The family of this 79-nucleotide RNA sequence from Pleurocapsales cyanobacterium LEGE 06147 is "Glutamine riboswitch aptamer (glnA leader)". The organism belongs to Pleurocapsales, within Bacteria.
[Rfam]
RNA sequence: AUCGUUCAUCUCUCUCUAAAACUCAAACAGCAGAGAGACGGAAGUAAGGAAAGAAUUAAAACUCCUGAAGGAACGCGCC
Dot-bracket structure: ..(((((.(((((((................)))))))..[.....(((..............)))....)))))]...